Small nucleolar RNA snoR74: a 129-nucleotide sequence from Cocos nucifera. By type it is an H/ACA-box small nucleolar RNA. The family's consensus secondary structure was predicted with WAR. A reference for the family is Marker et al. (2002), "Experimental RNomics: identification of 140 candidates for small non-messenger RNAs in the plant Arabidopsis thaliana", Curr Biol. Gene Ontology terms of the family: nucleolus and RNA processing. The match comes from Rfam's covariance-model search (95 bits).

RNA sequence: AAAAAAGCAGGUCUAUUUCCUUCAUAUAUAGGCCUCCUGUAAACUUUAGGGAGAUGAUAUACAUUGUUAUUGGGUGAACCUUUGUAGACUUUGUUGGUGACAAAAGGUUCGGUAAACAAUGGAACAUUG
Numbered sequence: 001a002a003a004a005a006a007g008c009a010g011g012u013c014u015a016u017u018u019c020c021u022u023c024a025u026a027u028a029u030a031g032g033c034c035u036c037c038u039g040u041a042a043a044c045u046u047u048a049g050g051g052a053g054a055u056g057a058u059a060u061a062c063a064u065u066g067u068u069a070u071u072g073g074g075u076g077a078a079c080c081u082u083u084g085u086a087g088a089c090u091u092u093g094u095u096g097g098u099g100a101c102a103a104a105a106g107g108u109u110c111g112g113u114a115a116a117c118a119a120u121g122g123a124a125c126a127u128u129g
Stems, first nucleotide, its partner, number of pairs: 005046003009035002012032004062121007075111007